[Rfam]
RNA sequence: GCUAGGAAGAGGAAGAAAAGAGUGCGUAAGAGCGGUGGGAAUGAGAACAUCAAAGAAACACUAGCUCACUGCUGGUUUCCUCCUGGGAAGGUGGAAACUUGUUGCGGUGUUUCCUGAUGCCUCUCAUUCCUAUUGUUCUUACGUGGUCCUUCCUUUUCCUUUUGGCU
Numbered sequence: 001g002c003u004a005g006g007a008a009g010a011g012g013a014a015g016a017a018a019a020g021a022g023u024g025c026g027u028a029a030g031a032g033c034g035g036u037g038g039g040a041a042u043g044a045g046a047a048c049a050u051c052a053a054a055g056a057a058a059c060a061c062u063a064g065c066u067c068a069c070u071g072c073u074g075g076u077u078u079c080c081u082c083c084u085g086g087g088a089a090g091g092u093g094g095a096a097a098c099u100u101g102u103u104g105c106g107g108u109g110u111u112u113c114c115u116g117a118u119g120c121c122u123c124u125c126a127u128u129c130c131u132a133u134u135g136u137u138c139u140u141a142c143g144u145g146g147u148c149c150u151u152c153c154u155u156u157u158c159c160u161u162u163u164g165g166c167u
Base pairs, nucleotide, nucleotide: 009158010157011156012155013154015152016151017150020148021147025143026142027141028140029139030138031137032136033135034134036132037131038130039129040128041127042126043125044124045123046122048119049118050117052115055113056112057111058110059109060108

Shown here is a 167-nucleotide sequence from Panicum virgatum, a member of the family "MIR2118 microRNA precursor family". For this family Rfam cites "A diverse set of microRNAs and microRNA-like small RNAs in developing rice grains" (Zhu et al., Genome Res, 2008). The organism belongs to Panicum sect. Hiantes, within Eukaryota. The family has 7 seed sequences and 2,377 matches in Rfam 15.1. The match comes from Rfam's covariance-model search (116 bits).